[Rfam]
RNA sequence: AAAAAGGGCUUCUGUCGUGAGUGGCACACGUGGGGCAACUCAACUGCUCUUCGUGCGAAAUUGACAUCAAGAGAUUUCGGAAGCAUAAUUUUUCGGUACUGGGCAGCCGGUGAUUGUUGGUCCCGGUGCCCAA
Numbered sequence: 001a002a003a004a005a006g007g008g009c010u011u012c013u014g015u016c017g018u019g020a021g022u023g024g025c026a027c028a029c030g031u032g033g034g035g036c037a038a039c040u041c042a043a044c045u046g047c048u049c050u051u052c053g054u055g056c057g058a059a060a061u062u063g064a065c066a067u068c069a070a071g072a073g074a075u076u077u078c079g080g081a082a083g084c085a086u087a088a089u090u091u092u093u094c095g096g097u098a099c100u101g102g103g104c105a106g107c108c109g110g111u112g113a114u115u116g117u118u119g120g121u122c123c124c125g126g127u128g129c130c131c132a133a
Stems, first nucleotide, its partner, number of pairs: 008084005013026005027055004032050006056079007101131004106127005112122004